Shown here is a 165-nucleotide RNA from Neogale vison, a member of the family "U1 spliceosomal RNA". Rfam links the family to the GO terms mRNA 5'-splice site recognition, U1 snRNP and pre-mRNA 5'-splice site binding.
[Rfam]
RNA sequence: ACAUUUACCUGGCUGUGGGGAUAUCAUGAUCAGGAAAGUGGUUUGUUUCAGGGCAAGUCUUACCACUGCACUCUAAAUAUGUUGACCCCUAUGAUUUUUCCCAAAUGUGGGAAACUUGGCUGCAUAAUUUGGGGUUGUGGAGGACUAUAUUUGUGUUCUCCCCUG
Numbered sequence: 001a002c003a004u005u006u007a008c009c010u011g012g013c014u015g016u017g018g019g020g021a022u023a024u025c026a027u028g029a030u031c032a033g034g035a036a037a038g039u040g041g042u043u044u045g046u047u048u049c050a051g052g053g054c055a056a057g058u059c060u061u062a063c064c065a066c067u068g069c070a071c072u073c074u075a076a077a078u079a080u081g082u083u084g085a086c087c088c089c090u091a092u093g094a095u096u097u098u099u100c101c102c103a104a105a106u107g108u109g110g111g112a113a114a115c116u117u118g119g120c121u122g123c124a125u126a127a128u129u130u131g132g133g134g135u136u137g138u139g140g141a142g143g144a145c146u147a148u149a150u151u152u153g154u155g156u157u158c159u160c161c162c163c164u165g
Stems, first nucleotide, its partner, number of pairs: 012123002015120001017048003020044002023042005050090004057083001059081001061079002092118003095114003100110002139164002142161003147156003
Source information
The family's RNA type in Rfam is spliceosomal small nuclear RNA. The base pairs follow the family's consensus structure, which is taken from published work. A search with the family's covariance model found it, with a score of 82 bits.